The record is a 162-nucleotide RNA from Acetobacter nitrogenifigens, which matches "FMN riboswitch aptamer (RFN element)" in Rfam. Rfam's curators write: The RFN element is a highly conserved domain that is found frequently in the 5'-untranslated regions of prokaryotic mRNAs that encode for flavin mononucleotide (FMN) biosynthesis and transport proteins. NCBI's taxonomy places the organism under Bacteria, Acetobacterales, Acetobacteraceae, Acetobacter, Acetobacter nitrogenifigens. It scores 110 bits against the family's covariance model.
RNA sequence: GGACGUUCUCAGGGCGGGGUGAAACUCCCCACCGGCGGUAAAUCGUUCCGUGCGCAGGCACGGUCGAAAGCCCGCGAGCGCCCGCCGCUCUUGCGGCGGGGUCAAGCAGAUCCGGUGUGAAUCCGGAGCCGACGGUCAUAGUCCGGAUGAGAGAGAACGGUG
Numbered sequence: 001g002g003a004c005g006u007u008c009u010c011a012g013g014g015c016g017g018g019g020u021g022a023a024a025c026u027c028c029c030c031a032c033c034g035g036c037g038g039u040a041a042a043u044c045g046u047u048c049c050g051u052g053c054g055c056a057g058g059c060a061c062g063g064u065c066g067a068a069a070g071c072c073c074g075c076g077a078g079c080g081c082c083c084g085c086c087g088c089u090c091u092u093g094c095g096g097c098g099g100g101g102u103c104a105a106g107c108a109g110a111u112c113c114g115g116u117g118u119g120a121a122u123c124c125g126g127a128g129c130c131g132a133c134g135g136u137c138a139u140a141g142u143c144c145g146g147a148u149g150a151g152a153g154a155g156a157a158c159g160g161u162g
Stems, first nucleotide, its partner, number of pairs: 004159007017029003031142002033131002035075004070129002078107002111127005133145003